RNA: MIR812 microRNA precursor family
Organism: Oryza sativa
RNA sequence: UAUAAGGGAUUUUGAGUUUUUGUUUAUAACGUUUGACCACUUGUCUUAUUCAAAAUUUUUUUAAAAUUAUUAUUUAUUUUAUUUGUGACUUACUUUAUUAUCUACCGUACUUUAAGCAUAACUUUUCGUUUUUUAUAUUUGCAAAAAAUAAUAAAUAAAACGAGUGGUCAAACGUUGCAAUCAAAAACUCAAAAUCCCUUAUA
Dot-bracket structure: ........................(.((((.(((((((((((((.((((.........................................................................................................)))).))))))))))))).)))).)........................
Numbered sequence: 001u002a003u004a005a006g007g008g009a010u011u012u013u014g015a016g017u018u019u020u021u022g023u024u025u026a027u028a029a030c031g032u033u034u035g036a037c038c039a040c041u042u043g044u045c046u047u048a049u050u051c052a053a054a055a056u057u058u059u060u061u062u063a064a065a066a067u068u069a070u071u072a073u074u075u076a077u078u079u080u081a082u083u084u085g086u087g088a089c090u091u092a093c094u095u096u097a098u099u100a101u102c103u104a105c106c107g108u109a110c111u112u113u114a115a116g117c118a119u120a121a122c123u124u125u126u127c128g129u130u131u132u133u134u135a136u137a138u139u140u141g142c143a144a145a146a147a148a149u150a151a152u153a154a155a156u157a158a159a160a161c162g163a164g165u166g167g168u169c170a171a172a173c174g175u176u177g178c179a180a181u182c183a184a185a186a187a188c189u190c191a192a193a194a195u196c197c198c199u200u201a202u203a
Stems, first nucleotide, its partner, number of pairs: 025179001027177004032172013046158004